The record is a 183-nucleotide RNA sequence from Companilactobacillus tucceti, which matches "T-box leader" in Rfam. The family has 48 seed sequences and 19,395 matches in Rfam 15.1. Uncharged tRNA acts as the effector for transcription antitermination of genes in the T-box leader family. By type it is a cis-regulatory leader. It scores 95 bits against the family's covariance model.
RNA sequence: AUUAAAACGUUGAAGAAAAAUAGUAACUAAUAAGUUUGUGACAGGAAGAAUCGGAAACUGAGAAGAUUUGGCAAACAAAUUAGUGAAUUCACUUUUGGAGUUUUAAAGUCGGUCACUAUAUAACCAUUUGAGUGCAUGUAUUUAACAUGAACUAGGGUGGUACCGCGAGUCCUCGUCCCUUAU
Numbered sequence: 001a002u003u004a005a006a007a008c009g010u011u012g013a014a015g016a017a018a019a020a021u022a023g024u025a026a027c028u029a030a031u032a033a034g035u036u037u038g039u040g041a042c043a044g045g046a047a048g049a050a051u052c053g054g055a056a057a058c059u060g061a062g063a064a065g066a067u068u069u070g071g072c073a074a075a076c077a078a079a080u081u082a083g084u085g086a087a088u089u090c091a092c093u094u095u096u097g098g099a100g101u102u103u104u105a106a107a108g109u110c111g112g113u114c115a116c117u118a119u120a121u122a123a124c125c126a127u128u129u130g131a132g133u134g135c136a137u138g139u140a141u142u143u144a145a146c147a148u149g150a151a152c153u154a155g156g157g158u159g160g161u162a163c164c165g166c167g168a169g170u171c172c173u174c175g176u177c178c179c180u181u182a183u
Stems, first nucleotide, its partner, number of pairs: 007101002015096004026084006037073003048069005107117003135149005154180004165176004